[Rfam]
RNA: mir-3492 microRNA precursor family
RNA sequence: GGCCUUAUGUAUACGAGCCGAGAUUUCAACAGACACCAGACCAUCAGGACUAAUGAGGCUCCCAAGAUAAGUGAGGCA
Number, nucleotide and partner (000 for none) at each position: 001g000002g077003c076004c075005u074006u073007a000008u071009g000010u069011a068012u067013a000014c000015g000016a000017g062018c000019c000020g061021a060022g059023a000024u058025u057026u056027c055028a054029a000030c000031a000032g000033a000034c000035a000036c000037c000038a000039g000040a000041c000042c000043a000044u000045c000046a000047g000048g000049a000050c000051u000052a000053a000054u028055g027056a026057g025058g024059c022060u021061c020062c017063c000064a000065a000066g000067a012068u011069a010070a000071g008072u000073g006074a005075g004076g003077c002078a000